The family of this 32-nucleotide sequence is "L31-Firmicutes ribosomal protein leader". By type it is a cis-regulatory leader. The literature on the family includes a 2020 paper in BMC Microbiol by Eckert and Weinberg, "Discovery of 20 novel ribosomal leader candidates in bacteria and archaea". The sequence is in the family's curated seed alignment.
[Rfam]
RNA sequence: CUAUGACUUAUAUUUUGUCAUGGCGGAAGGAG
Numbered sequence: 001c002u003a004u005g006a007c008u009u010a011u012a013u014u015u016u017g018u019c020a021u022g023g024c025g026g027a028a029g030g031a032g
Stems, first nucleotide, its partner, number of pairs: 001023007